RNA sequence: GUCUCUAAUAAUGAUCAAAACAAUACUUUCGUUCUUCGAGAUAAUAUAUCACGGAAACUUUUGGAGACCUGAACUGAAGAGAC
Numbered sequence: 001g002u003c004u005c006u007a008a009u010a011a012u013g014a015u016c017a018a019a020a021c022a023a024u025a026c027u028u029u030c031g032u033u034c035u036u037c038g039a040g041a042u043a044a045u046a047u048a049u050c051a052c053g054g055a056a057a058c059u060u061u062u063g064g065a066g067a068c069c070u071g072a073a074c075u076g077a078a079g080a081g082a083c
Stems, first nucleotide, its partner, number of pairs: 003081004

The record is an 83-nucleotide RNA from Coptis chinensis, which matches "Small nucleolar RNA Z159/U59" in Rfam. By type it is a C/D-box small nucleolar RNA. Rfam links the family to the GO terms RNA processing and nucleolus. For this family Rfam cites "The high diversity of snoRNAs in plants: identification and comparative study of 120 snoRNA genes from Oryza sativa" (Chen et al., Nucleic Acids Res, 2003). The family has 10 seed sequences and 1,401 matches in Rfam 15.1. NCBI's taxonomy places the organism under Eukaryota, Spermatophyta, Ranunculales, Coptidoideae, Coptis.